[Rfam]
RNA sequence: AAGCCACCUGGUGACUCUGCUUACCUGGAUGUGUUUCUGCAGAAGUUUAGAAAAAACUGCCAGUGGUAAUGCCAUGUUGUGAGCCUUAAGGACACUGAAGUCACUGAUGUUCCCAGAAAUGGCUGCAGCA
Numbered sequence: 001a002a003g004c005c006a007c008c009u010g011g012u013g014a015c016u017c018u019g020c021u022u023a024c025c026u027g028g029a030u031g032u033g034u035u036u037c038u039g040c041a042g043a044a045g046u047u048u049a050g051a052a053a054a055a056a057c058u059g060c061c062a063g064u065g066g067u068a069a070u071g072c073c074a075u076g077u078u079g080u081g082a083g084c085c086u087u088a089a090g091g092a093c094a095c096u097g098a099a100g101u102c103a104c105u106g107a108u109g110u111u112c113c114c115a116g117a118a119a120u121g122g123c124u125g126c127a128g129c130a
Stems, first nucleotide, its partner, number of pairs: 003061001005059002016043005071123004083110002086107003091102003

Rfam assigns this 130-nucleotide RNA sequence from Sciurus carolinensis to the family "Small nucleolar RNA SNORA33". From the family's description: ACA33 is a member of the H/ACA class of snoRNA that guide the sites of modification of uridines to pseudouridines. It is annotated as an H/ACA-box small nucleolar RNA. The source organism's lineage runs through Eukaryota, Mammalia, Theria, Sciuromorpha and Sciurus. The base pairs follow the family's consensus structure, which was predicted with PFOLD.